The family of this 162-nucleotide RNA sequence from Tumebacillus flagellatus is "Group II catalytic intron D1-D4-3". The base pairs follow the family's consensus structure. It scores 126 bits against the family's covariance model. Taxonomically the source falls in Tumebacillus (Bacteria, Bacilli, Caryophanales, Alicyclobacillaceae).
[Rfam]
Nucleotides: 162
Base pairs, nucleotide, nucleotide: 017162019160020159025154029149030148031147032146033145034144035140036139037138038137039136051135052134053133054132055131056130062127063126064125067122068121069120070119071118072117075103076102077101078100081096082095083094084093
Number, partner (000 for none) and nucleotide at each position: 001000g002000c003000g004000g005000a006000a007000u008000c009000u010000g011000a012000a013000g014000g015000a016000a017162g018000u019160c020159g021000g022000c023000g024000g025154c026000a027000a028000a029149c030148c031147u032146c033145c034144g035140g036139u037138c038137u039136g040000a041000g042000g043000a044000a045000c046000a047000c048000g049000a050000a051135c052134c053133u054132c055131a056130u057000a058000u059000g060000a061000g062127g063126c064125u065000c066000g067122c068121g069120a070119u071118a072117g073000u074000u075103g076102g077101g078100u079000g080000a081096g082095u083094c084093u085000g086000c087000u088000a089000u090000g091000c092000a093084a094083g095082a096081c097000g098000a099000a100078g101077c102076c103075c104000u105000u106000g107000u108000u109000g110000c111000c112000g113000a114000a115000g116000g117072c118071u119070a120069u121068c122067g123000a124000g125064a126063g127062u128000a129000a130056a131055u132054g133053a134052g135051g136039c137038a138037g139036a140035u141000a142000g143000g144034u145033g146032g147031a148030g149029g150000g151000a152000a153000a154025g155000a156000c157000a158000g159020c160019g161000u162017c